[Rfam]
Notes
Shown here is a 93-nucleotide RNA from Helicobacter magdeburgensis, a member of the family "Selenocysteine transfer RNA". NCBI's taxonomy places the organism under Bacteria, Pseudomonadati, Campylobacterota, Campylobacterales, Helicobacter. The match comes from Rfam's covariance-model search (57 bits). Clan: tRNA clan.
RNA sequence: GGAGGGCAAGCGUCUCUGGUGGGCGUCGUGGGCUUCAAACCCACUGAAGGGUUAGGUGUCUAAUCCUUGGGGAGUUCGAUUCUCUCGCCUUCC
Numbered sequence: 001g002g003a004g005g006g007c008a009a010g011c012g013u014c015u016c017u018g019g020u021g022g023g024c025g026u027c028g029u030g031g032g033c034u035u036c037a038a039a040c041c042c043a044c045u046g047a048a049g050g051g052u053u054a055g056g057u058g059u060c061u062a063a064u065c066c067u068u069g070g071g072g073a074g075u076u077c078g079a080u081u082c083u084c085u086c087g088c089c090u091u092c093c
Base pairs, nucleotide, nucleotide: 001093002092003091004090005089006088007087010026011025012024013023014022016021028044029043030042031041032040047068048067049066050065051064052063053062071085072084073083074082